[Rfam]
RNA: Glycine riboswitch aptamer
RNA sequence: CAGCCCGCGUUGGGAGAACUGGUCACCAGUGCCGAAGGAGCAACCGCCCCGGUAAACUCUCAGGCAAAUGGACCUUCGCGGCACC
Numbered sequence: 001c002a003g004c005c006c007g008c009g010u011u012g013g014g015a016g017a018a019c020u021g022g023u024c025a026c027c028a029g030u031g032c033c034g035a036a037g038g039a040g041c042a043a044c045c046g047c048c049c050c051g052g053u054a055a056a057c058u059c060u061c062a063g064g065c066a067a068a069u070g071g072a073c074c075u076u077c078g079c080g081g082c083a084c085c
Stems, first nucleotide, its partner, number of pairs: 006080004012074002019029004031065003034061002038059003044052002